[Rfam]
RNA sequence: AAUGGUUUGUGGCGCGAUGAUCCCUUUCACGGGCGACGUCGUCAUGCACAUUUUGCGUAACCGCAGUGCAGAUACCUGAGCCCGCCACCGAGCGGGCUUUUUUUU
Numbered sequence: 001a002a003u004g005g006u007u008u009g010u011g012g013c014g015c016g017a018u019g020a021u022c023c024c025u026u027u028c029a030c031g032g033g034c035g036a037c038g039u040c041g042u043c044a045u046g047c048a049c050a051u052u053u054u055g056c057g058u059a060a061c062c063g064c065a066g067u068g069c070a071g072a073u074a075c076c077u078g079a080g081c082c083c084g085c086c087a088c089c090g091a092g093c094g095g096g097c098u099u100u101u102u103u104u105u
Stems, first nucleotide, its partner, number of pairs: 009045004014039003018035001022033003079098007086090001